[Rfam]
RNA sequence: GAGCAAAACAUCCAACGCCACACGCGUUCCGACACAUGACACUGGGUGCCUCUUAAAGGGAGGUUGUGUGAUGGGGGUCGCGGAGGUUCAAC
Number, nucleotide and partner (000 for none) at each position: 001g000002a000003g000004c000005a000006a000007a000008a000009c000010a000011u000012c000013c000014a000015a000016c000017g000018c000019c000020a000021c000022a000023c082024g081025c080026g079027u000028u077029c076030c075031g000032a000033c000034a000035c073036a072037u071038g000039a069040c068041a067042c066043u000044g000045g000046g000047u000048g064049c063050c062051u061052c060053u000054u000055a000056a000057a000058g000059g000060g052061a051062g050063g049064u048065u000066g042067u041068g040069u039070g000071a037072u036073g035074g000075g030076g029077g028078u000079c026080g025081c024082g023083g000084a000085g000086g000087u000088u000089c000090a000091a000092c000

Rfam assigns this 92-nucleotide sequence from Thiorhodovibrio frisius to the family "t44 RNA". On this family, see Tjaden et al., Nucleic Acids Res 2002: "Transcriptome analysis of Escherichia coli using high-density oligonucleotide probe arrays". Taxonomically the source falls in Thiorhodovibrio (Bacteria, Pseudomonadota, Gammaproteobacteria, Chromatiaceae). From the family's description: This family consists of a number of bacterial RNA genes of between 135 and 170 bases in length. The t44 gene has been identified in several species of enteric bacteria but homologs have also been identified in Pseudomonas and Coxiella species. The t44 gene is found between the map and rpsB genes in all species in the full alignment apart from Shigella flexneri. Pairs were carried over by alignment from the consensus structure, which was predicted with LocARNA. A search with the family's covariance model found it, with a score of 63 bits. Rfam classes the family as a small RNA.